[Rfam]
RNA sequence: GGUCUGUGAUGAGAAAUAGCCAAAUCUGACCACCAGAAGGUAAAGUUACCUUCUGGGUGUCAUGAUCUAUGUGCAGUUCUGAGA
Numbered sequence: 001g002g003u004c005u006g007u008g009a010u011g012a013g014a015a016a017u018a019g020c021c022a023a024a025u026c027u028g029a030c031c032a033c034c035a036g037a038a039g040g041u042a043a044a045g046u047u048a049c050c051u052u053c054u055g056g057g058u059g060u061c062a063u064g065a066u067c068u069a070u071g072u073g074c075a076g077u078u079c080u081g082a083g084a
Base pairs, nucleotide, nucleotide: 031059032058033057034056038051039050040049041048
RNA: Small nucleolar RNA U2-19
Organism: Turnix velox